[Rfam]
The record is a 119-nucleotide sequence from Allacma fusca, which matches "U4atac minor spliceosomal RNA" in Rfam. It scores 63 bits against the family's covariance model. NCBI's taxonomy places the organism under Eukaryota, Metazoa, Panarthropoda, Collembola, Allacma. Pairs were carried over by alignment from the consensus structure, which is taken from published work. U4atac is an essential component of the minor U12-type spliceosome complex which is required for removal of the rarer class of eukaryotic introns (AT-AC, U12-type).

RNA sequence: ACCGACCUUGUCAAUGGGGAAAGCAAUGUCCAAGGAGCGUGAAGUGAGGGCAUUGAUGCUAAUACCCUGACUAAACUAACUUCCCACGUAAGCUCUCUUACGAUGGAAUUUUUGGAGCC
Numbered sequence: 001a002c003c004g005a006c007c008u009u010g011u012c013a014a015u016g017g018g019g020a021a022a023g024c025a026a027u028g029u030c031c032a033a034g035g036a037g038c039g040u041g042a043a044g045u046g047a048g049g050g051c052a053u054u055g056a057u058g059c060u061a062a063u064a065c066c067c068u069g070a071c072u073a074a075a076c077u078a079a080c081u082u083c084c085c086a087c088g089u090a091a092g093c094u095c096u097c098u099u100a101c102g103a104u105g106g107a108a109u110u111u112u113u114g115g116a117g118c119c
Base pairs, nucleotide, nucleotide: 006018007017008016022057025054026053027052028051029050030049031048037045038044084106085105086104087102088101089100090099091098092097